[Rfam]
A member of the RNA family "DUF805b RNA", 35 nucleotides long. The sequence is in the family's curated seed alignment.

RNA sequence: AACGCGGAUGCCGAAAAGCGAUAACAGAGUAAGCA
Numbered sequence: 001a002a003c004g005c006g007g008a009u010g011c012c013g014a015a016a017a018g019c020g021a022u023a024a025c026a027g028a029g030u031a032a033g034c035a
Stems, first nucleotide, its partner, number of pairs: 003020003010034002